[Rfam]
A member of the RNA family "mir-9229 microRNA precursor family" from Cnephaeus nilssonii, 76 nucleotides long.
Its family is annotated with miRNA-mediated post-transcriptional gene silencing and RISC complex in the Gene Ontology.
It scores 80 bits against the family's covariance model.

RNA sequence: GAGACACCCCAAUGGAGCAGGACUUGCUUCAGUGGAACUUCAGUGUUCACUGAGUCUGCUCCUUGAGUGUGUUACU
Numbered sequence: 001g002a003g004a005c006a007c008c009c010c011a012a013u014g015g016a017g018c019a020g021g022a023c024u025u026g027c028u029u030c031a032g033u034g035g036a037a038c039u040u041c042a043g044u045g046u047u048c049a050c051u052g053a054g055u056c057u058g059c060u061c062c063u064u065g066a067g068u069g070u071g072u073u074a075c076u
Base pairs, nucleotide, nucleotide: 001075003073004072005071006070007069009067012064014062015061016060017059018058019057021056022055023054029053030052031051032050033049034048035047036046037044038043